RNA sequence: UCCGUCCUAGCACCAGCAGGGAUGGGAGCGGGGAACCCACUUAUGUGGGUCGUCGCACAGCGACGGCCCUUGGGGUGAAGCCGCAGCCGCGGCCGGGCGCUCCGUCCGAACCCGACAGCUAACUCCGUAGGCGUCGGAGAGGUACCUC
Numbered sequence: 001u002c003c004g005u006c007c008u009a010g011c012a013c014c015a016g017c018a019g020g021g022a023u024g025g026g027a028g029c030g031g032g033g034a035a036c037c038c039a040c041u042u043a044u045g046u047g048g049g050u051c052g053u054c055g056c057a058c059a060g061c062g063a064c065g066g067c068c069c070u071u072g073g074g075g076u077g078a079a080g081c082c083g084c085a086g087c088c089g090c091g092g093c094c095g096g097g098c099g100c101u102c103c104g105u106c107c108g109a110a111c112c113c114g115a116c117a118g119c120u121a122a123c124u125c126c127g128u129a130g131g132c133g134u135c136g137g138a139g140a141g142g143u144a145c146c147u148c
Stems, first nucleotide, its partner, number of pairs: 001027003028128006038072002073113003081092004095107004
Shown here is a 148-nucleotide RNA sequence from Solicola gregarius, a member of the family "c-di-AMP riboswitch aptamer (ydaO/yuaA leader)". Lineage of the source: Bacteria > Bacillati > Actinomycetes > Propionibacteriales > Solicola. Rfam describes the family as follows. This family represents a conserved RNA structure found upstream of the ydaO and yuaA genes in Bacillus subtilis and related genes in other bacteria.